[Rfam]
RNA sequence: UGAGAUUACGAUGAGGAUUCUUAGCUCCCUCUUCUGAUUCAAAGUUGAGGAAAUCGGCUGGCCGAAUCGAACCAAUUUAUUAUAGCCAUCACUGAGUAA
Numbered sequence: 001u002g003a004g005a006u007u008a009c010g011a012u013g014a015g016g017a018u019u020c021u022u023a024g025c026u027c028c029c030u031c032u033u034c035u036g037a038u039u040c041a042a043a044g045u046u047g048a049g050g051a052a053a054u055c056g057g058c059u060g061g062c063c064g065a066a067u068c069g070a071a072c073c074a075a076u077u078u079a080u081u082a083u084a085g086c087c088a089u090c091a092c093u094g095a096g097u098a099a
Stems, first nucleotide, its partner, number of pairs: 006099004
RNA: Small nucleolar RNA R30/Z108
Organism: Salix brachista